The record is a 70-nucleotide RNA from Haemaphysalis longicornis, which matches "mir-34 microRNA precursor family" in Rfam. The organism belongs to Haemaphysalis, within Eukaryota. Gene Ontology terms of the family: RISC complex and miRNA-mediated post-transcriptional gene silencing. On this family, see Dostie et al., RNA 2003: "Numerous microRNPs in neuronal cells containing novel microRNAs". Human mir-34a was discovered computationally and later experimentally verified. The mature sequence is excised from the 5' arm of the hairpin.
RNA sequence: GCCGUCUGGCAGUGUGGUUAGCUGGUUGUGUGCCACGUACUACAACCACUAGCUGUAUUGCCGAUACGGU
Numbered sequence: 001g002c003c004g005u006c007u008g009g010c011a012g013u014g015u016g017g018u019u020a021g022c023u024g025g026u027u028g029u030g031u032g033c034c035a036c037g038u039a040c041u042a043c044a045a046c047c048a049c050u051a052g053c054u055g056u057a058u059u060g061c062c063g064a065u066a067c068g069g070u
Base pairs, nucleotide, nucleotide: 002069003068004067005066008062009061011059012058013057014056015055016054017053018052019051020050021049023048024047025046026045027044028043029042030041